[Rfam]
Record summary
Rfam assigns this 375-nucleotide RNA from Rhodocyclus tenuis to the family "Bacterial RNase P class A". Ribonuclease P (RNase P) is a ubiquitous endoribonuclease, found in archaea, bacteria and eukarya as well as chloroplasts and mitochondria. Its best characterised activity is the generation of mature 5'-ends of tRNAs by cleaving the 5'-leader elements of precursor-tRNAs. Cellular RNase Ps are ribonucleoproteins.

RNA sequence: GAAGUCAGUCAGACAGCCGCCGGGCGCUUCAUGCGCCGGGAGGAAAGUCCGGGCUCCGCAGAGCAGGAUGCCGGCUAACGGCCGGGCGCUAUAAGCCGCAAGGCGAAGGCGACGGAAAGUGCAACAGAGAACAGACCGCCGAUGGCCCUCCCGGAAACGGGCGGGAUCAGGUAAGGGUGAAACGGCGAGGUAAGAGCUCACCGCGGACGCGGCAACGCGGACGGCACGGUAAACCCCAUCCGGAGCAAGGCCGAAUAGGGAAGCAAUGACGUUGCUCGCGUCGCUUCCGGGUAGGCUGCUUGAGCGUGCCGGCAACGGUACGCCUAGAGGAAUGGCUGUCCACGACAGAACCCGGCUUAUCGACGGGCUUCCCCA
Number, nucleotide and partner (000 for none) at each position: 001g371002a370003a369004g368005u367006c366007a000008g364009u363010c362011a360012g340013a339014c338015a337016g336017c335018c334019g000020c040021c039022g000023g037024g036025c035026g034027c033028u000029u000030c000031a000032u000033g027034c026035g025036c024037c023038g000039g021040g020041a000042g000043g000044a000045a358046a357047g356048u000049c355050c354051g353052g352053g351054c245055u244056c243057c242058g000059c000060a000061g277062a276063g275064c274065a000066g241067g240068a239069u238070g237071c085072c084073g083074g082075c081076u000077a000078a000079c000080g000081g075082c074083c073084g072085g071086g113087c111088g110089c109090u108091a000092u000093a000094a000095g000096c000097c000098g000099c000100a000101a000102g000103g000104c000105g000106a000107a000108g090109g089110c088111g087112a000113c086114g236115g235116a000117a000118a000119g234120u233121g230122c229123a000124a000125c000126a000127g000128a000129g000130a000131a000132c000133a000134g000135a000136c176137c175138g172139c171140c170141g000142a000143u169144g168145g167146c000147c165148c164149u000150c000151c000152c000153g000154g000155a000156a000157a000158c000159g000160g000161g000162c000163g000164g148165g147166a000167u145168c144169a143170g140171g139172u138173a000174a000175g137176g136177g000178u000179g000180a000181a000182a000183c000184g202185g201186c000187g199188a198189g197190g000191u000192a000193a000194g000195a000196g000197c189198u188199c187200a000201c185202c184203g225204c223205g222206g000207a000208c219209g218210c217211g216212g000213c000214a000215a000216c211217g210218c209219g208220g000221a000222c205223g204224g000225c203226a000227c000228g000229g122230u121231a000232a000233a120234c119235c115236c114237c070238a069239u068240c067241c066242g057243g056244a055245g054246c000247a000248a000249g297250g296251c295252c294253g000254a000255a000256u000257a000258g000259g288260g287261a286262a285263g284264c283265a000266a000267u000268g282269a281270c280271g279272u278273u000274g064275c063276u062277c061278g272279c271280g270281u269282c268283g264284c263285u262286u261287c260288c259289g000290g000291g000292u000293a000294g252295g251296c250297u249298g000299c000300u000301u000302g000303a000304g323305c322306g321307u320308g319309c318310c317311g316312g000313c000314a000315a000316c311317g310318g309319u308320a307321c306322g305323c304324c000325u000326a000327g000328a000329g000330g000331a000332a000333u000334g018335g017336c016337u015338g014339u013340c012341c000342a000343c000344g000345a000346c000347a000348g000349a000350a000351c053352c052353c051354g050355g049356c047357u046358u045359a000360u011361c000362g010363a009364c008365g000366g006367g005368c004369u003370u002371c001372c000373c000374c000375a000